[Rfam]
RNA sequence: CUGGUAUGGCCACGCUGAAGCGCCCCCUGCCAGGGAUCAGCGUGGUGAUGAAGCCAUAUCCGCUCUUGCCGGGGCGGAGGUGGCGUAAGGCGGCCGGUGUCCGGGAGUUACCGCUCUCGGGCACCGCCG
Dot-bracket structure: .(...((..(((((((((....((........))..)))))))))..)).(.((((..((((((((....))))))))..)))).)...)....((((((((((((((....))))))))))))))...
Numbered sequence: 001c002u003g004g005u006a007u008g009g010c011c012a013c014g015c016u017g018a019a020g021c022g023c024c025c026c027c028u029g030c031c032a033g034g035g036a037u038c039a040g041c042g043u044g045g046u047g048a049u050g051a052a053g054c055c056a057u058a059u060c061c062g063c064u065c066u067u068g069c070c071g072g073g074g075c076g077g078a079g080g081u082g083g084c085g086u087a088a089g090g091c092g093g094c095c096g097g098u099g100u101c102c103g104g105g106a107g108u109u110a111c112c113g114c115u116c117u118c119g120g121g122c123a124c125c126g127c128c129g
Stems, first nucleotide, its partner, number of pairs: 002090001006049002010045009023034002051086001053084004059078008095126014

The record is a 129-nucleotide RNA from Streptomyces sp. ISL-12, which matches "Streptomyces RNA 6925" in Rfam.
Identified by deep sequencing of transcriptome at the end of exponential growth phase. Sequencing size consistent with northern blot size.
The organism belongs to Streptomyces, within Bacteria.